[Rfam]
RNA sequence: AGGCCUGGAGAGAGUUGCAGGGUCUGAUCCACAGCCUCCAUGGCAGCUAUUGAUCAGCCAUUGCCUCUCUCUUUCUUUCCA
Numbered sequence: 001a002g003g004c005c006u007g008g009a010g011a012g013a014g015u016u017g018c019a020g021g022g023u024c025u026g027a028u029c030c031a032c033a034g035c036c037u038c039c040a041u042g043g044c045a046g047c048u049a050u051u052g053a054u055c056a057g058c059c060a061u062u063g064c065c066u067c068u069c070u071c072u073u074u075c076u077u078u079c080c081a
Base pairs, nucleotide, nucleotide: 008073009072010071011070012069013068014067017064018063019062020061022059024057025056026055027054028053029052033048034047035046
The record is an 81-nucleotide sequence from Myotis davidii, which matches "mir-574 microRNA precursor family" in Rfam. Pairs were carried over by alignment from the consensus structure, which was predicted with RNAalifold. Clan: mir-574 microRNA precursor clan. NCBI's taxonomy places the organism under Eukaryota, Eumetazoa, Craniata, Laurasiatheria, Myotis. It scores 89 bits against the family's covariance model.